[Rfam]
RNA sequence: GAGGCCGGAGGCCAACGCCCGACAGCGCGAUGCGCCCUCGGGCGUCGUUGUG
Numbered sequence: 001g002a003g004g005c006c007g008g009a010g011g012c013c014a015a016c017g018c019c020c021g022a023c024a025g026c027g028c029g030a031u032g033c034g035c036c037c038u039c040g041g042g043c044g045u046c047g048u049u050g051u052g
Base pairs, nucleotide, nucleotide: 016044017043018042019041020040021039022038025035026034027033028032
Rfam assigns this 52-nucleotide RNA sequence from Pseudolabrys sp. Root1462 to the family "ffh sRNA". On this family, see Meyer et al., BMC Genomics 2009: "Identification of candidate structured RNAs in the marine organism 'Candidatus Pelagibacter ubique'". The match comes from Rfam's covariance-model search (61 bits).